A member of the RNA family "Small nucleolar RNA SNORD16" from Albula glossodonta, 100 nucleotides long. Pairs were carried over by alignment from the consensus structure, which was predicted with PFOLD. Its family is annotated with RNA processing and nucleolus in the Gene Ontology. A search with the family's covariance model found it, with a score of 99 bits. Lineage of the source: Eukaryota > Chordata > Neopterygii > Elopocephalai > Albula. A reference for the family is Fragapane et al. (1993), "A novel small nucleolar RNA (U16) is encoded inside a ribosomal protein intron and originates by processing of the pre-mRNA", EMBO J. Clan: SNORD16 clan.
RNA sequence: UGCUGUGAUGGUGUAAUUUGCGUCUGACCUGGUGAACAGCGACAGUUGCCUGCUGUCUCUAUGCUGGCGCCAGAGGUUGACGAAAAUCCAAGUCUGAGCA
Numbered sequence: 001u002g003c004u005g006u007g008a009u010g011g012u013g014u015a016a017u018u019u020g021c022g023u024c025u026g027a028c029c030u031g032g033u034g035a036a037c038a039g040c041g042a043c044a045g046u047u048g049c050c051u052g053c054u055g056u057c058u059c060u061a062u063g064c065u066g067g068c069g070c071c072a073g074a075g076g077u078u079g080a081c082g083a084a085a086a087u088c089c090a091a092g093u094c095u096g097a098g099c100a
Base pairs, nucleotide, nucleotide: 001100002099003098021082022081023080024079030072031071032070033069034068039064040063041057042056043055044054045053